[Rfam]
RNA sequence: UGACGGAAUAUACGGAGACUGAACUGGACCGGGGUGCGAUUCCCCGCGCCUCCACCACCAAGUCUCCCGGCCGGUCCCCACCCAGGGACCUGGGCGUCGCCUUCAGCGACGGCGCCCGAUCUGAACGGCGCGGGAGACUUUGUUCUGGGGGCGAUCAGCAUCGACAGGCAGGGUAAGUAGAAGACGCGACACGGCAUGGCUGCCGGUUCCUUCGGGAGCGCUCGGCCCACUUUGACAAAUGUCAACGCUGCAAACGACAACGACGUCGUGGUUUCGACCAUGACCUCGGUCAAGCUGGCCGCUUAA
Numbered sequence: 001u002g003a004c005g006g007a008a009u010a011u012a013c014g015g016a017g018a019c020u021g022a023a024c025u026g027g028a029c030c031g032g033g034g035u036g037c038g039a040u041u042c043c044c045c046g047c048g049c050c051u052c053c054a055c056c057a058c059c060a061a062g063u064c065u066c067c068c069g070g071c072c073g074g075u076c077c078c079c080a081c082c083c084a085g086g087g088a089c090c091u092g093g094g095c096g097u098c099g100c101c102u103u104c105a106g107c108g109a110c111g112g113c114g115c116c117c118g119a120u121c122u123g124a125a126c127g128g129c130g131c132g133g134g135a136g137a138c139u140u141u142g143u144u145c146u147g148g149g150g151g152c153g154a155u156c157a158g159c160a161u162c163g164a165c166a167g168g169c170a171g172g173g174u175a176a177g178u179a180g181a182a183g184a185c186g187c188g189a190c191a192c193g194g195c196a197u198g199g200c201u202g203c204c205g206g207u208u209c210c211u212u213c214g215g216g217a218g219c220g221c222u223c224g225g226c227c228c229a230c231u232u233u234g235a236c237a238a239a240u241g242u243c244a245a246c247g248c249u250g251c252a253a254a255c256g257a258c259a260a261c262g263a264c265g266u267c268g269u270g271g272u273u274u275c276g277a278c279c280a281u282g283a284c285c286u287c288g289g290u291c292a293a294g295c296u297g298g299c300c301g302c303u304u305a306a
Stems, first nucleotide, its partner, number of pairs: 009181001011179002020170002024167003030046005047153007192205004
RNA: permuted transfer-messenger RNA